[Rfam]
RNA sequence: GCCGCCGCAGCGCCUGACGGGAGGCGGAGAACGAACGACGGUGUCGGCCAUUUUGUGUCGGCUUCGUGUGGGACGCGGUGGUG
Numbered sequence: 001g002c003c004g005c006c007g008c009a010g011c012g013c014c015u016g017a018c019g020g021g022a023g024g025c026g027g028a029g030a031a032c033g034a035a036c037g038a039c040g041g042u043g044u045c046g047g048c049c050a051u052u053u054u055g056u057g058u059c060g061g062c063u064u065c066g067u068g069u070g071g072g073a074c075g076c077g078g079u080g081g082u083g
Stems, first nucleotide, its partner, number of pairs: 002081007010074001014072002017069003021065005027059002029056001030054002033049001036046003
RNA: mir-632 microRNA precursor family
Organism: Dipodomys ordii